The record is a 600-nucleotide part of an RNA from Sphingobacterium allocomposti, which matches "Bacterial large subunit ribosomal RNA" in Rfam.
RNA sequence: UGGUAUCGGUGAAGACGCCGGUUCCCCGCAACGGGACGGAAAGACCCCAUGAACCUUCACUAUAGCUUAACAUUGGAACUGGGUACAGGAUGUGUAGGAUAGGCGGGAGAUAUUGAAGCGGGUUCGCCAGGAUCCGUGGAAUCGUCCUUGAAAUACCGCCCUUUCUGUAUCCGGUUUCUAACUCCCUUAUUGGGAGGACAUUGUUUGGUGGGUAGUUUGACUGGGGUGGUCGCCUCCAAAAAGGUAACGGAGGCUUUCAAAGGUAAGCUCAGUACGCUUGGUAACCGUACGUGGAGUGCAAUGGCAUAAGCUUGCUUGACUGUGAGACCAACAAGUCGACCAGGGUCGAAAGACGGACAUAGUGAUCCGGUGGUUCUGUAUGGAAGGGCCAUCGCUCAAAGGAUAAAAGGUACUCUGGGGAUAACAGGCUGAUCUCCCCCAAGAGCUCAUAUCGACGGGGAGGUUUGGCACCUCGAUGUCGGCUCGUCACAUCCUGGGGCUGGAGAAGGUCCCAAGGGUUGGGCUGUUCGCCCAUUAAAGUGGCACGCGAGCUGGGUUCAGAACGUCGCGAGACAGUUCGGUCCCUAUCUGUUGUGGGCG
Numbered sequence: 001u002g003g004u005a006u007c008g009g010u011g012a013a014g015a016c017g018c019c020g021g022u023u024c025c026c027c028g029c030a031a032c033g034g035g036a037c038g039g040a041a042a043g044a045c046c047c048c049a050u051g052a053a054c055c056u057u058c059a060c061u062a063u064a065g066c067u068u069a070a071c072a073u074u075g076g077a078a079c080u081g082g083g084u085a086c087a088g089g090a091u092g093u094g095u096a097g098g099a100u101a102g103g104c105g106g107g108a109g110a111u112a113u114u115g116a117a118g119c120g121g122g123u124u125c126g127c128c129a130g131g132a133u134c135c136g137u138g139g140a141a142u143c144g145u146c147c148u149u150g151a152a153a154u155a156c157c158g159c160c161c162u163u164u165c166u167g168u169a170u171c172c173g174g175u176u177u178c179u180a181a182c183u184c185c186c187u188u189a190u191u192g193g194g195a196g197g198a199c200a201u202u203g204u205u206u207g208g209u210g211g212g213u214a215g216u217u218u219g220a221c222u223g224g225g226g227u228g229g230u231c232g233c234c235u236c237c238a239a240a241a242a243g244g245u246a247a248c249g250g251a252g253g254c255u256u257u258c259a260a261a262g263g264u265a266a267g268c269u270c271a272g273u274a275c276g277c278u279u280g281g282u283a284a285c286c287g288u289a290c291g292u293g294g295a296g297u298g299c300a301a302u303g304g305c306a307u308a309a310g311c312u313u314g315c316u317u318g319a320c321u322g323u324g325a326g327a328c329c330a331a332c333a334a335g336u337c338g339a340c341c342a343g344g345g346u347c348g349a350a351a352g353a354c355g356g357a358c359a360u361a362g363u364g365a366u367c368c369g370g371u372g373g374u375u376c377u378g379u380a381u382g383g384a385a386g387g388g389c390c391a392u393c394g395c396u397c398a399a400a401g402g403a404u405a406a407a408a409g410g411u412a413c414u415c416u417g418g419g420g421a422u423a424a425c426a427g428g429c430u431g432a433u434c435u436c437c438c439c440c441a442a443g444a445g446c447u448c449a450u451a452u453c454g455a456c457g458g459g460g461a462g463g464u465u466u467g468g469c470a471c472c473u474c475g476a477u478g479u480c481g482g483c484u485c486g487u488c489a490c491a492u493c494c495u496g497g498g499g500c501u502g503g504a505g506a507a508g509g510u511c512c513c514a515a516g517g518g519u520u521g522g523g524c525u526g527u528u529c530g531c532c533c534a535u536u537a538a539a540g541u542g543g544c545a546c547g548c549g550a551g552c553u554g555g556g557u558u559c560a561g562a563a564c565g566u567c568g569c570g571a572g573a574c575a576g577u578u579c580g581g582u583c584c585c586u587a588u589c590u591g592u593u594g595u596g597g598g599c600g
Stems, first nucleotide, its partner, number of pairs: 005022005025598008034590003038585002046419004051415002053411005059216004066208002069205004075178016092161001102160005109143003118137008182196005219231004232254006255400001257357002263315006269295002272290005296305002320343003326337003345354003368394007376387002428469003432466001433463007443453002480555001481553004485547001486544005493518002496513006520534005561579004565574003